sul1 RNA: a 60-nucleotide sequence from Roseivivax isoporae. The base pairs follow the family's consensus structure, which is taken from published work. Rfam 15.1 lists 519 matches to the family in 480 species. It scores 64 bits against the family's covariance model.
RNA sequence: UCUGGACCUGGGGUGAAACUCCCCGGGUGGCUCUCCCGGCCGCCGAUCCGCCGGGCUAAC
Numbered sequence: 001u002c003u004g005g006a007c008c009u010g011g012g013g014u015g016a017a018a019c020u021c022c023c024c025g026g027g028u029g030g031c032u033c034u035c036c037c038g039g040c041c042g043c044c045g046a047u048c049c050g051c052c053g054g055g056c057u058a059a060c
Stems, first nucleotide, its partner, number of pairs: 006028006012021001035055006